[Rfam]
RNA sequence: AUCUAAGUCUACGGGACCUGUCAGCCGUGGCAGUCUCCCUUCCUAGCCAUGGAAGAGCAUGAUUCUUGUUGAUUGGCAAAGCUGUCACCAUUUUAUUGCUGUCAGAUUCUGCCUUGCAAAAGGAACAUUC
Numbered sequence: 001a002u003c004u005a006a007g008u009c010u011a012c013g014g015g016a017c018c019u020g021u022c023a024g025c026c027g028u029g030g031c032a033g034u035c036u037c038c039c040u041u042c043c044u045a046g047c048c049a050u051g052g053a054a055g056a057g058c059a060u061g062a063u064u065c066u067u068g069u070u071g072a073u074u075g076g077c078a079a080a081g082c083u084g085u086c087a088c089c090a091u092u093u094u095a096u097u098g099c100u101g102u103c104a105g106a107u108u109c110u111g112c113c114u115u116g117c118a119a120a121a122g123g124a125a126c127a128u129u130c
Base pairs, nucleotide, nucleotide: 002053003052004051005050007048013039014038015037016036018033019032020031021030022029067127068126069125070124073121074120076117077116078115079114082105083104084103087100089098090097

Small nucleolar RNA SNORA24: a 130-nucleotide RNA sequence from Dipodomys ordii. It scores 114 bits against the family's covariance model. Rfam describes the family as follows. ACA24 is a member of the H/ACA class of snoRNA that guide the sites of modification of uridines to pseudouridines. NCBI's taxonomy places the organism under Eukaryota, Chordata, Eutheria, Glires, Dipodomys.